[Rfam]
RNA sequence: GGUUCCGGUGGUGCGAGCGGUCUCCUCCAGGAAAGAACCGGGAGGAAAGAACCUCGCCAAACCCCACCUUUACCGCCCCACCGCCCCGGCCUCACCCGCACGGGUGAACAUGCUCAACUGAGCUGGUAAUGAGCGGGGUUGAGUGCCCUAGGCUCACGGCACAACCCGAUCGCAGACAUGCGUCGGCCCCCGCCGGGACGGCAAUCCCAGUGCGAGGGCCUGACCAUCGAGGAAGCAAGGACCUUCCCG
Numbered sequence: 001g002g003u004u005c006c007g008g009u010g011g012u013g014c015g016a017g018c019g020g021u022c023u024c025c026u027c028c029a030g031g032a033a034a035g036a037a038c039c040g041g042g043a044g045g046a047a048a049g050a051a052c053c054u055c056g057c058c059a060a061a062c063c064c065c066a067c068c069u070u071u072a073c074c075g076c077c078c079c080a081c082c083g084c085c086c087c088g089g090c091c092u093c094a095c096c097c098g099c100a101c102g103g104g105u106g107a108a109c110a111u112g113c114u115c116a117a118c119u120g121a122g123c124u125g126g127u128a129a130u131g132a133g134c135g136g137g138g139u140u141g142a143g144u145g146c147c148c149u150a151g152g153c154u155c156a157c158g159g160c161a162c163a164a165c166c167c168g169a170u171c172g173c174a175g176a177c178a179u180g181c182g183u184c185g186g187c188c189c190c191c192g193c194c195g196g197g198a199c200g201g202c203a204a205u206c207c208c209a210g211u212g213c214g215a216g217g218g219c220c221u222g223a224c225c226a227u228c229g230a231g232g233a234a235g236c237a238a239g240g241a242c243c244u245u246c247c248c249g
Base pairs, nucleotide, nucleotide: 007228008227009226010225017076018075019074092107093106094105095104096103097102122160123159124156125155126154185220186219187218188217189216191214192213193212195208196207197206198205231247232246233245234244235243

The family of this 249-nucleotide RNA from Streptomyces inusitatus is "Streptomyces sRNA 4677". Located in the intergenic region between anti-sigma factor SCO4677 gene and a putative regulatory protein gene SCO4676. scr4677 expression requires the SCO4677 activity and scr4677 sRNA itself seem to affect the levels of the SCO4676-associated transcripts. Rfam classes the family as a small RNA. A search with the family's covariance model found it, with a score of 172 bits. Pairs were carried over by alignment from the consensus structure.